[Rfam]
Nucleotides: 144
Base pairs, nucleotide, nucleotide: 025048026047031042032041062072063071064070106141107140108139109138110137111136115134116133118132119131120130121129
Number, partner (000 for none) and nucleotide at each position: 001000g002000a003000u004000g005000a006000a007000u008000a009000a010000a011000c012000u013000u014000u015000g016000a017000c018000g019000c020000g021000a022000a023000u024000u025048u026047u027000g028000c029000a030000u031042u032041u033000u034000g035000g036000u037000u038000u039000g040000c041032a042031a043000u044000g045000c046000g047026a048025a049000u050000u051000u052000u053000u054000g055000a056000a057000u058000g059000a060000a061000a062072u063071u064070u065000u066000g067000a068000u069000g070064a071063g072062a073000g074000u075000u076000u077000g078000a079000a080000a081000a082000a083000u084000c085000c086000g087000g088000a089000c090000u091000u092000u093000a094000a095000a096000a097000g098000a099000a100000g101000c102000g103000a104000a105000a106141u107140g108139g109138u110137g111136g112000c113000c114000c115134c116133g117000a118132a119131u120130g121129g122000a123000c124000u125000c126000g127000a128000a129121c130120c131119a132118u133116c134115g135000a136111c137110c138109a139108c140107u141106a142000c143000c144000a
Shown here is a 144-nucleotide sequence from Campylobacter rectus, a member of the family "Bacterial antisense RNA HPnc0260". NCBI's taxonomy places the organism under Bacteria, Pseudomonadati, Campylobacterales, Campylobacteraceae, Campylobacter rectus. The literature on the family includes a 2010 paper in Nature by Sharma et al., "The primary transcriptome of the major human pathogen Helicobacter pylori". The sequence is in the family's curated seed alignment.